[Rfam]
RNA sequence: UAGUAACGGUGAAGAUGCCGUUUACCCGCAACGGGACGGAAAGACCCCAUGAACCUUUACUAUAGCUUAGCAUUGAGUUUUGGUACUGGAUGUGUAGGAUAGGUGGGAGGCUGUGAGCCGGUGUCGCUAGGCAUCGGGGAGCCAACGUUGAAAUACCACCCUUCUUGUACUGGAAUUCUAAUCCCUAAAUGGGAGACAUUGCUUGGUGGGUAGUUUGACUGGGGUGGUCGCCUCCAAAAGAGUAACGGAGGCUUUCAAAGGUUCCCUCAGCACGCUUGGUAACCGUGCGUAGAGUGCAAUAGCAAAAGGGAGCUUGACUGUGAGACCGACAAGUCGAUCAGGUACGAAAGUAGGAUAUAGUGAUCCGGUGGUUUAGUAUGGAACAGCCAUCGCUCAAAGGAUAAAAGGUACUCUGGGGAUAACAGGCUGAUCUCCCCCAAGAGCUCACAUCGACGGGGAGGUUUGGCACCUCGAUGUCGGCUCGUCACAUCCUGGGGCUGGAGAAGGUCCCAAGGGUUCGGCUGUUCGCCGAUUAAAGUGGCACGCGAGCUGGGUUCAGAACGUCGUGAGACAGUUCGGUCCCUAUCUGUUGUGGGCGUA
Number, nucleotide and partner (000 for none) at each position: 001u000002a000003g000004u000005a022006a021007c020008g019009g018010u000011g000012a000013a000014g000015a000016u000017g000018c009019c008020g007021u006022u005023u000024a000025c596026c595027c594028g593029c592030a591031a590032c589033g000034g588035g587036a586037c000038g583039g582040a000041a000042a000043g000044a000045c000046c417047c416048c415049a414050u000051g413052a412053a409054c408055c407056u406057u405058u000059a214060c213061u212062a211063u000064a000065g000066c206067u205068u000069a203070g202071c201072a200073u000074u000075g178076a177077g176078u175079u174080u173081u172082g171083g170084u169085a168086c167087u000088g165089g164090a163091u000092g161093u000094g000095u000096a000097g000098g000099a000100u000101a000102g160103g159104u158105g157106g156107g000108a000109g143110g142111c141112u000113g000114u000115g000116a000117g000118c137119c136120g135121g134122u133123g132124u131125c130126g000127c000128u000129a000130g125131g124132c123133a122134u121135c120136g119137g118138g000139g000140a000141g111142c110143c109144a000145a000146c000147g000148u000149u000150g000151a000152a000153a000154u000155a000156c106157c105158a104159c103160c102161c092162u000163u090164c089165u088166u000167g086168u085169a084170c083171u082172g081173g080174a079175a078176u077177u076178c075179u000180a000181a000182u194183c193184c192185c191186u000187a000188a000189a000190u000191g185192g184193g183194a182195g000196a000197c000198a000199u000200u072201g071202c070203u069204u000205g067206g066207u000208g000209g000210g000211u062212a061213g060214u059215u000216u000217g229218a228219c227220u226221g000222g000223g000224g000225u000226g220227g219228u218229c217230g252231c251232c250233u249234c248235c247236a000237a000238a000239a000240g000241a000242g000243u000244a000245a000246c000247g235248g234249a233250g232251g231252c230253u398254u000255u355256c354257a000258a000259a000260g000261g313262u312263u311264c310265c309266c308267u293268c292269a000270g288271c287272a286273c285274g284275c000276u000277u000278g000279g000280u000281a000282a000283c000284c274285g273286u272287g271288c270289g000290u000291a000292g268293a267294g303295u302296g000297c000298a000299a000300u000301a000302g295303c294304a000305a000306a000307a000308g266309g265310g264311a263312g262313c261314u000315u000316g000317a000318c341319u340320g339321u000322g000323a000324g335325a334326c333327c000328g000329a000330c000331a000332a000333g326334u325335c324336g000337a000338u000339c320340a319341g318342g000343u352344a351345c350346g000347a000348a000349a000350g345351u344352a343353g000354g256355a255356u000357a000358u000359a000360g000361u000362g000363a000364u000365c000366c392367g391368g390369u389370g388371g387372u386373u000374u385375a000376g000377u000378a000379u000380g000381g000382a000383a000384c000385a374386g372387c371388c370389a369390u368391c367392g366393c000394u000395c000396a000397a000398a253399g000400g000401a000402u000403a000404a000405a057406a056407g055408g054409u053410a000411c000412u052413c051414u049415g048416g047417g046418g000419a000420u000421a000422a000423c000424a000425g000426g467427c466428u465429g000430a464431u461432c460433u459434c458435c457436c456437c455438c000439a000440a000441g451442a450443g000444c000445u000446c000447a000448c000449a000450u442451c441452g000453a000454c000455g437456g436457g435458g434459a433460g432461g431462u000463u000464u430465g428466g427467c426468a000469c000470c000471u000472c000473g000474a000475u000476g000477u000478c553479g551480g550481c549482u548483c545484g542485u541486c540487a539488c538489a000490u000491c516492c515493u000494g511495g510496g509497g508498c507499u506500g000501g000502a000503g000504a000505a000506g499507g498508u497509c496510c495511c494512a000513a000514g000515g492516g491517u000518u532519c531520g530521g529522c528523u000524g000525u000526u000527c000528g522529c521530c520531g519532a518533u000534u000535a000536a000537a000538g488539u487540g486541g485542c484543a000544c000545g483546c000547g000548a482549g481550c480551u479552g000553g478554g000555u000556u000557c000558a000559g577560a576561a575562c574563g572564u571565c570566g000567u000568g000569a000570g565571a564572c563573a000574g562575u561576u560577c559578g000579g000580u000581c000582c039583c038584u000585a000586u036587c035588u034589g032590u031591u030592g029593u028594g027595g026596g025597c000598g000599u000600a000